This 81-nucleotide RNA sequence from Edwardsiella hoshinae belongs to the Rfam family "antisense RNA of dnaA mRNA". On this family, see Dadzie et al., PLoS One 2013: "Identification and characterization of a cis-encoded antisense RNA associated with the replication process of Salmonella enterica serovar Typhi". The family's consensus secondary structure was predicted with RNAfold. It scores 71 bits against the family's covariance model.
RNA sequence: CUUGGCAUUCGGCUUACGCGCCAUGAUGCCAUUGCCUACAGCAUGCAACAGGUGAGUCUUACCCAAACCAGUACCGCCGUA
Numbered sequence: 001c002u003u004g005g006c007a008u009u010c011g012g013c014u015u016a017c018g019c020g021c022c023a024u025g026a027u028g029c030c031a032u033u034g035c036c037u038a039c040a041g042c043a044u045g046c047a048a049c050a051g052g053u054g055a056g057u058c059u060u061a062c063c064c065a066a067a068c069c070a071g072u073a074c075c076g077c078c079g080u081a
Stems, first nucleotide, its partner, number of pairs: 005042002009038001011036003016032001018030001020029002051078004056074002061072002